The family of this 89-nucleotide sequence from Sinobacterium caligoides is "TPP riboswitch aptamer (THI element)".
The source organism's lineage runs through Bacteria, Pseudomonadota, Gammaproteobacteria, Spongiibacteraceae and Sinobacterium.
Its family is annotated with thiamine pyrophosphate binding in the Gene Ontology.
RNA sequence: GACGAUCCUUAGGGGCGGCGCGAGCCUGAGAAGCACCCUUAGUACCUGAUCCAGAUAAUGCUGGCGUAGGAAGAGGUGUUCACUCGUUC
Numbered sequence: 001g002a003c004g005a006u007c008c009u010u011a012g013g014g015g016c017g018g019c020g021c022g023a024g025c026c027u028g029a030g031a032a033g034c035a036c037c038c039u040u041a042g043u044a045c046c047u048g049a050u051c052c053a054g055a056u057a058a059u060g061c062u063g064g065c066g067u068a069g070g071a072a073g074a075g076g077u078g079u080u081c082a083c084u085c086g087u088u089c
Stems, first nucleotide, its partner, number of pairs: 007076004011039004016033001017026003045070004051064004